The family of this 177-nucleotide sequence from Rossellomorea vietnamensis is "Lysine riboswitch aptamer". Lineage of the source: Bacteria > Bacillota > Bacilli > Bacillaceae > Rossellomorea. On this family, see Mandal et al., Cell 2003: "Riboswitches Control Fundamental Biochemical Pathways in Bacillus subtilis and Other Bacteria". A search with the family's covariance model found it, with a score of 120 bits.
[Rfam]
RNA sequence: UCUGAUAAUAGAGGCGCGAGAAUGAUGAGUACCUUCUUUGAGAAUAAUGGAUUCCGGGAUAAGUUGGGAAAGGCAGAUCGCCGAAGCAGAAAAUAGCCAAUUCUAUUUUUUGUUGGGCCAGCAUUGAAGAAAUGCUGGACUGUCACAAUGCAAAAGUUGUGGAGCACUAUUGAAGAG
Numbered sequence: 001u002c003u004g005a006u007a008a009u010a011g012a013g014g015c016g017c018g019a020g021a022a023u024g025a026u027g028a029g030u031a032c033c034u035u036c037u038u039u040g041a042g043a044a045u046a047a048u049g050g051a052u053u054c055c056g057g058g059a060u061a062a063g064u065u066g067g068g069a070a071a072g073g074c075a076g077a078u079c080g081c082c083g084a085a086g087c088a089g090a091a092a093a094u095a096g097c098c099a100a101u102u103c104u105a106u107u108u109u110u111u112g113u114u115g116g117g118c119c120a121g122c123a124u125u126g127a128a129g130a131a132a133u134g135c136u137g138g139a140c141u142g143u144c145a146c147a148a149u150g151c152a153a154a155a156g157u158u159g160u161g162g163a164g165c166a167c168u169a170u171u172g173a174a175g176a177g
Stems, first nucleotide, its partner, number of pairs: 006172006016081004023075002032067002036063003085114012115141002118138008143162007